[Rfam]
RNA sequence: AUUUGAGUUAGAGGUUGCAUCUUCAAAGAGUAAUUAUUCAGAAGCUAAAUGGGGCGUAUGUUGAAAUAAUGAAAGGUGGAAAUGCCGAAACUUGUAUUGACCAUUUACAAUGCGAGUUGGGACAGUUUUCGAAAGAAACUGGACUGUCACAUGCGUGAUGUGCUACCUAUAUA
Numbered sequence: 001a002u003u004u005g006a007g008u009u010a011g012a013g014g015u016u017g018c019a020u021c022u023u024c025a026a027a028g029a030g031u032a033a034u035u036a037u038u039c040a041g042a043a044g045c046u047a048a049a050u051g052g053g054g055c056g057u058a059u060g061u062u063g064a065a066a067u068a069a070u071g072a073a074a075g076g077u078g079g080a081a082a083u084g085c086c087g088a089a090a091c092u093u094g095u096a097u098u099g100a101c102c103a104u105u106u107a108c109a110a111u112g113c114g115a116g117u118u119g120g121g122a123c124a125g126u127u128u129u130c131g132a133a134a135g136a137a138a139c140u141g142g143a144c145u146g147u148c149a150c151a152u153g154c155g156u157g158a159u160g161u162g163c164u165a166c167c168u169a170u171a172u173a
Stems, first nucleotide, its partner, number of pairs: 006168002009165003017085004022080004033070006089118011119145002123141007147158004
Background:
Lysine riboswitch aptamer: a 173-nucleotide RNA sequence. The family has 47 seed sequences and 3,224 matches in Rfam 15.1. Rfam describes the family as follows. Riboswitches are metabolite binding domains within certain messenger RNAs that serve as precision sensors for their corresponding targets. Allosteric rearrangement of mRNA structure is mediated by ligand binding, and this results in modulation of gene expression. The family's consensus secondary structure is taken from published work.